[Rfam]
RNA sequence: UUGUGUCUAUUCUGUAAGUCGCUUUGGAUAAAAGCGUCUGCCAAAUUCAUAAA
Numbered sequence: 001u002u003g004u005g006u007c008u009a010u011u012c013u014g015u016a017a018g019u020c021g022c023u024u025u026g027g028a029u030a031a032a033a034g035c036g037u038c039u040g041c042c043a044a045a046u047u048c049a050u051a052a053a
Base pairs, nucleotide, nucleotide: 013043014041015040016039020036021035022034023033024032025031

Shown here is a 53-nucleotide RNA sequence from Menidia menidia, a member of the family "UnaL2 LINE 3' element".
The source organism's lineage runs through Eukaryota, Chordata, Euacanthomorphacea, Atherinopsidae and Menidia.
From the family's description: The eel long interspersed element (LINE) UnaL2 and its partner short interspersed element (SINE) share a conserved 3' tail containing a stem-loop that is critical for their retrotransposition.